About this RNA: This 371-nucleotide sequence from Paenalicyclobacillus cellulosilyticus belongs to the Rfam family "transfer-messenger RNA". From the family's description: Bacterial tmRNA, also known as 10Sa RNA or SsrA, is named for its dual tRNA and mRNA-like properties. Its role is to liberate the mRNA from a stalled ribosome. To accomplish this part of the tmRNA is used as a reading frame that ends in a translation stop signal.
RNA sequence: GGGGGCGUUUUGGAUUCGACGGGGAUCGAUCGAGCGUGAACGGCGGGCCGUGGGGCCGCGAACCACGUACCAACGCGGGCGAAAAUUAACUGGCAAAGCGAAGCGCUUUACCGCAAACACCAACCUCGCCCUGGCUGCCUAAUCGCAUCCAGGCCGCUGCCUAGCGCGUCGCCCGUGCGCGCCGGGUAGCGUCACCUUAGCGGGCUGGCCGCCGGCCUCGUUCGCGGGCCGCCGGUGAGACAUGGCGAACUCGCCCUUGCGCCAGCGUGUGCGUCCGCGGGCCAAGGGGACGAUAAGUAGACGUACUACGCCCGUAGAUGUUCACGUGGCGAGGUCUUCGGACGCGGGUUCGACUCCCGCCGCCUCCACCA
Numbered sequence: 001g002g003g004g005g006c007g008u009u010u011u012g013g014a015u016u017c018g019a020c021g022g023g024g025a026u027c028g029a030u031c032g033a034g035c036g037u038g039a040a041c042g043g044c045g046g047g048c049c050g051u052g053g054g055g056c057c058g059c060g061a062a063c064c065a066c067g068u069a070c071c072a073a074c075g076c077g078g079g080c081g082a083a084a085a086u087u088a089a090c091u092g093g094c095a096a097a098g099c100g101a102a103g104c105g106c107u108u109u110a111c112c113g114c115a116a117a118c119a120c121c122a123a124c125c126u127c128g129c130c131c132u133g134g135c136u137g138c139c140u141a142a143u144c145g146c147a148u149c150c151a152g153g154c155c156g157c158u159g160c161c162u163a164g165c166g167c168g169u170c171g172c173c174c175g176u177g178c179g180c181g182c183c184g185g186g187u188a189g190c191g192u193c194a195c196c197u198u199a200g201c202g203g204g205c206u207g208g209c210c211g212c213c214g215g216c217c218u219c220g221u222u223c224g225c226g227g228g229c230c231g232c233c234g235g236u237g238a239g240a241c242a243u244g245g246c247g248a249a250c251u252c253g254c255c256c257u258u259g260c261g262c263c264a265g266c267g268u269g270u271g272c273g274u275c276c277g278c279g280g281g282c283c284a285a286g287g288g289g290a291c292g293a294u295a296a297g298u299a300g301a302c303g304u305a306c307u308a309c310g311c312c313c314g315u316a317g318a319u320g321u322u323c324a325c326g327u328g329g330c331g332a333g334g335u336c337u338u339c340g341g342a343c344g345c346g347g348g349u350u351c352g353a354c355u356c357c358c359g360c361c362g363c364c365u366c367c368a369c370c371a
Base pairs, nucleotide, nucleotide: 001367002366003365004364005363006362007361020340021339022338023337024336025335026334027333034327035326036325037324038323039322040321041320042319044314045313046312047311048310049067050066051065052064053063054080056078057077058076059075060074131152132151133150134149136147137146138145155191156190157189158188159187160186161185162184164182166180167179168178169177171205172204173203174202175201176200209235210234211233213231214230215229216228220251222249254288255287256286257285258284261282262281263280265278266277267276269306270305271304272303274299344360345359346358347357348356

The family's consensus secondary structure is taken from published work. Lineage of the source: Bacteria > Bacillati > Bacillota > Alicyclobacillaceae > Paenalicyclobacillus.